[Rfam]
RNA sequence: GCCUUUCGAAGCUCCCUUCUCCUCCCGGGCGAGCUUCGACGCCGGCCGGAUCCCCUCCUCCUCCCGGGGCCGGCCUCAACUAGAAGCCCUUCGGCGAAUGGCGCCGAAGGGCUUUUUUU
Numbered sequence: 001g002c003c004u005u006u007c008g009a010a011g012c013u014c015c016c017u018u019c020u021c022c023u024c025c026c027g028g029g030c031g032a033g034c035u036u037c038g039a040c041g042c043c044g045g046c047c048g049g050a051u052c053c054c055c056u057c058c059u060c061c062u063c064c065c066g067g068g069g070c071c072g073g074c075c076u077c078a079a080c081u082a083g084a085a086g087c088c089c090u091u092c093g094g095c096g097a098a099u100g101g102c103g104c105c106g107a108a109g110g111g112c113u114u115u116u117u118u119u
Base pairs, nucleotide, nucleotide: 007038008037009036011034012033013032014031016029044075045074046073047072048071049070052068053067084114085113086112087111088110089109090108091107092106093105094104095103096102
Record summary:
This 119-nucleotide RNA sequence from Gellertiella hungarica belongs to the Rfam family "Alphaproteobacterial ar14". Rfam's curators write: Smr14C2 was renamed NfeR1 (Nodule Formation Efficiency RNA) highly expressed in salt stress and during the symbiotic interaction on legume roots. Its family is annotated with biological process involved in symbiotic interaction in the Gene Ontology. The family's RNA type in Rfam is small RNA. The literature on the family includes a 2012 paper in RNA Biol by del Val et al., "A survey of sRNA families in alpha-proteobacteria".